[Rfam]
RNA sequence: CUGUAGUGCCGGGCCCCUCUGGCGAAGCAGCGUCCAAGCUGCCUCGUGAUGUCGGAGCUACUCC
Numbered sequence: 001c002u003g004u005a006g007u008g009c010c011g012g013g014c015c016c017c018u019c020u021g022g023c024g025a026a027g028c029a030g031c032g033u034c035c036a037a038g039c040u041g042c043c044u045c046g047u048g049a050u051g052u053c054g055g056a057g058c059u060a061c062u063c064c
Stems, first nucleotide, its partner, number of pairs: 006058002009055004022047004027042005
The family of this 64-nucleotide RNA from Tianweitania sediminis is "terC RNA". Rfam 15.1 lists 1,112 matches to the family in 772 species.